A member of the RNA family "Necrovirus cap-independent translation element" from Umbravirus ixeridii, 78 nucleotides long. It scores 66 bits against the family's covariance model. The source organism's lineage runs through Viruses, Riboviria, Orthornavirae, Tombusviridae and Umbravirus ixeridii.

[Rfam]
RNA sequence: UGGGUAUAGGUGCUGGAUCCUGGGAAACAGGUUUAACGGGCGGACUAGUCACCCGCCGUCGCAUCACCCUUGAUACCA
Number, nucleotide and partner (000 for none) at each position: 001u078002g077003g076004g074005u073006a000007u000008a070009g069010g068011u000012g067013c000014u061015g060016g000017a000018u000019c031020c030021u029022g028023g000024g000025a000026a000027a000028c022029a021030g020031g019032u000033u000034u000035a000036a000037c000038g000039g057040g056041c055042g054043g053044a000045c000046u000047a000048g000049u000050c000051a000052c000053c043054c042055g041056c040057c039058g000059u000060c015061g014062c000063a000064u000065c000066a000067c012068c010069c009070u008071u000072g000073a005074u004075a000076c003077c002078a001